[Rfam]
RNA sequence: ACUAGACCUCCUUUACUCGGAUCGUCCGGCACGUUCCUGCCGGUGAAGGGACCUCUCA
Number, nucleotide and partner (000 for none) at each position: 001a000002c000003u000004a000005g000006a000007c000008c000009u050010c049011c048012u047013u046014u045015a044016c000017u000018c000019g000020g000021a000022u000023c000024g000025u000026c043027c042028g041029g040030c039031a038032c000033g000034u000035u000036c000037c000038u031039g030040c029041c028042g027043g026044u015045g014046a013047a012048g011049g010050g009051a000052c000053c000054u000055c000056u000057c000058a000
The record is a 58-nucleotide RNA sequence from Streptomyces sp. ICBB 8177, which matches "msiK RNA" in Rfam. The family's consensus secondary structure is taken from published work.